A member of the RNA family "RT-15 RNA" from Corticimicrobacter populi, 189 nucleotides long.

RNA sequence: GUGCGCUUGACGCCGGUCUGUCACGGCAGUCCGGACAAUGCGCCAUUGAAUCUGGUCGAGCCGCUGCCCCAAAAGGGCACCGCCAGGCGCAACAGGGAUAUCGUCGGCAGCAGCCGCAGUGAUCCCGCGCAGUUCGCCUGCUGAAUCCUCCGGGCCUCGGCAGGCUGACAUGAAUAGCUCGAAGACCCU
Numbered sequence: 001g002u003g004c005g006c007u008u009g010a011c012g013c014c015g016g017u018c019u020g021u022c023a024c025g026g027c028a029g030u031c032c033g034g035a036c037a038a039u040g041c042g043c044c045a046u047u048g049a050a051u052c053u054g055g056u057c058g059a060g061c062c063g064c065u066g067c068c069c070c071a072a073a074a075g076g077g078c079a080c081c082g083c084c085a086g087g088c089g090c091a092a093c094a095g096g097g098a099u100a101u102c103g104u105c106g107g108c109a110g111c112a113g114c115c116g117c118a119g120u121g122a123u124c125c126c127g128c129g130c131a132g133u134u135c136g137c138c139u140g141c142u143g144a145a146u147c148c149u150c151c152g153g154g155c156c157u158c159g160g161c162a163g164g165c166u167g168a169c170a171u172g173a174a175u176a177g178c179u180c181g182a183a184g185a186c187c188c189u
Base pairs, nucleotide, nucleotide: 004042005041006040013034014033015032016031018029019028020027021026056182057181058180059179060178061177062082063081065079066078067077068076069075087130088129089128090127095126096125097124098123101122102121105116106115107114108113133168134167136165137164138163139162140161141160142159143158144157147154148153

The family's RNA type in Rfam is small RNA.